The record is an 89-nucleotide RNA sequence from Streptomyces sp. NL15-2K, which matches "ZMP/ZTP riboswitch aptamer (pfl RNA motif)" in Rfam. Lineage of the source: Bacteria > Bacillati > Actinomycetes > Kitasatosporales > Streptomyces. The family has 185 seed sequences and 3,295 matches in Rfam 15.1.
[Rfam]
RNA sequence: GAACCCGGCCGCGACUGGCGCGGGUGGACAACCACCGGGGAGCGGCCGCGUCUGUUCCGAUGAGAGCGUCGACCGCCUGGGCGUCUCCG
Numbered sequence: 001g002a003a004c005c006c007g008g009c010c011g012c013g014a015c016u017g018g019c020g021c022g023g024g025u026g027g028a029c030a031a032c033c034a035c036c037g038g039g040g041a042g043c044g045g046c047c048g049c050g051u052c053u054g055u056u057c058c059g060a061u062g063a064g065a066g067c068g069u070c071g072a073c074c075g076c077c078u079g080g081g082c083g084u085c086u087c088c089g
Stems, first nucleotide, its partner, number of pairs: 003051002006048007015039002017077004024035004066084005